[Rfam]
RNA sequence: GCCAGGAGUAGAAGCGGUUAGCGCCAUCGGCGCGGGACAUUGCUCCUUUU
Numbered sequence: 001g002c003c004a005g006g007a008g009u010a011g012a013a014g015c016g017g018u019u020a021g022c023g024c025c026a027u028c029g030g031c032g033c034g035g036g037a038c039a040u041u042g043c044u045c046c047u048u049u050u
Stems, first nucleotide, its partner, number of pairs: 005046006015035001018037002021033005
RNA: Xanthine riboswitch aptamer (NMT1 RNA)